[Rfam]
RNA: Selenocysteine insertion sequence 4
Organism: Acetoanaerobium sticklandii
RNA sequence: GGUACUUGUACUCGUUGCGGCGCAACGAUGGUUAAAGA
Numbered sequence: 001g002g003u004a005c006u007u008g009u010a011c012u013c014g015u016u017g018c019g020g021c022g023c024a025a026c027g028a029u030g031g032u033u034a035a036a037g038a
Base pairs, nucleotide, nucleotide: 005031006030013027014026015025016024017023018022